[Rfam]
Nucleotides: 157
Stems, first nucleotide, its partner, number of pairs: 001028002030137006040065002066122003074096004099116004
Number, partner (000 for none) and nucleotide at each position: 001028g002027c003000u004000a005000u006000g007000c008000g009000a010000g011000a012000a013000a014000c015000a016000a017000a018000u019000c020000c021000a022000g023000g024000g025000c026000a027002g028001u029000a030137g031136c032135g033134g034133g035132g036000g037000a038000c039000c040065c041064a042000g043000a044000c045000u046000u047000u048000g049000g050000c051000g052000u053000u054000g055000u056000c057000a058000a059000c060000g061000c062000c063000u064041u065040g066122g067121g068120g069000u070000g071000a072000a073000g074096u075095c076094g077093u078000g079000c080000c081000u082000u083000c084000c085000a086000c087000g088000g089000g090000u091000g092000a093077a094076c095075g096074a097000c098000c099116g100115g101114a102113u103000a104000u105000u106000u107000c108000u109000c110000a111000g112000g113102a114101u115100c116099c117000g118000a119000a120068c121067c122066c123000g124000a125000c126000a127000g128000c129000u130000a131000a132035c133034u134033u135032c136031g137030c138000a139000g140000g141000u142000g143000u144000g145000u146000c147000a148000a149000c150000g151000u152000g153000a154000g155000a156000g157000g